Shown here is a 174-nucleotide RNA sequence from an Acidimicrobiia bacterium, a member of the family "glmS glucosamine-6-phosphate activated ribozyme aptamer". Lineage of the source: Bacteria > Bacillati > Actinomycetota > Acidimicrobiia. The literature on the family includes a 2004 paper in Nature by Winkler et al., "Control of gene expression by a natural metabolite-responsive ribozyme".

[Rfam]
RNA sequence: AGAACAAGACAAGCGCCAGACCUCUCCCCAAAGAAAUGAAAGUACGAGUGAGAGGUGACGAGGCGGAGGGUUAUCGAAGAUUUCGGCGGAUGCCCUCCCGGCCCCACGGUCGUAACGUCCCACGGUAAAAACCGGAGAGCGAUCUCCGGGACAGAGACGGGGACGAAGUGGAGA
Numbered sequence: 001a002g003a004a005c006a007a008g009a010c011a012a013g014c015g016c017c018a019g020a021c022c023u024c025u026c027c028c029c030a031a032a033g034a035a036a037u038g039a040a041a042g043u044a045c046g047a048g049u050g051a052g053a054g055g056u057g058a059c060g061a062g063g064c065g066g067a068g069g070g071u072u073a074u075c076g077a078a079g080a081u082u083u084c085g086g087c088g089g090a091u092g093c094c095c096u097c098c099c100g101g102c103c104c105c106a107c108g109g110u111c112g113u114a115a116c117g118u119c120c121c122a123c124g125g126u127a128a129a130a131a132c133c134g135g136a137g138a139g140c141g142a143u144c145u146c147c148g149g150g151a152c153a154g155a156g157a158c159g160g161g162g163a164c165g166a167a168g169u170g171g172a173g174a
Base pairs, nucleotide, nucleotide: 020056021055022054023053024052025051026050029048065098066097067096068095069094074086075085076084077083099112100111101110102109103108117164118163119162120161121160123159124158132149133148134147135146136145137144138143
Dot-bracket structure: ...................(((((((..(..................).)))))))........(((((....((((.....)))).......)))))(((((....)))))....(((((.((.......(((((((....)))))))........)))))))..........